The family of this 69-nucleotide sequence from Ophiophagus hannah is "mir-8/mir-141/mir-200 microRNA precursor family". It is one of the family's seed sequences.
[Rfam]
RNA sequence: GUGGACAUCUUACUAGACAGUGCUGGAUUUUGUCAGUGUACUCUAACACUGUCUGGUAACGAUGUUUAA
Numbered sequence: 001g002u003g004g005a006c007a008u009c010u011u012a013c014u015a016g017a018c019a020g021u022g023c024u025g026g027a028u029u030u031u032g033u034c035a036g037u038g039u040a041c042u043c044u045a046a047c048a049c050u051g052u053c054u055g056g057u058a059a060c061g062a063u064g065u066u067u068a069a
Base pairs, nucleotide, nucleotide: 002068003067004066005065006064007063008062009061010059011058012057013056014055015054016053017052018051019050020049021048022047024045025044026043027042

Pairs were carried over by alignment from the consensus structure, which was predicted with RNAalifold.
A reference for the family is Lagos-Quintana et al. (2001), "Identification of novel genes coding for small expressed RNAs", Science.
Rfam links the family to the GO terms RISC complex and miRNA-mediated post-transcriptional gene silencing.